[Rfam]
RNA: Giardia snoRNA GlsR2
Organism: Giardia duodenalis
Nucleotides: 104
Stems, first nucleotide, its partner, number of pairs: 002030006013024004034103002038100004044092003047087005053082003063077005
Number, partner (000 for none) and nucleotide at each position: 001000u002030g003029u004028a005027g006026c007025g008000a009000a010000c011000c012000c013024a014023c015022g016021c017000g018000c019000a020000a021016g022015c023014g024013u025007u026006g027005c028004u029003a030002c031000g032000a033000g034103g035102c036000g037000a038100u039099g040098g041097a042000g043000a044092c045091a046090a047087a048086a049085g050084c051083a052000g053082u054081u055080a056000c057000g058000u059000u060000c061000g062000c063077a064076a065075c066074u067073c068000u069000c070000u071000g072000a073067g074066g075065g076064u077063u078000c079000c080055u081054g082053a083051u084050g085049c086048u087047u088000c089000c090046u091045u092044g093000g094000a095000u096000g097041u098040c099039c100038g101000a102035g103034c104000c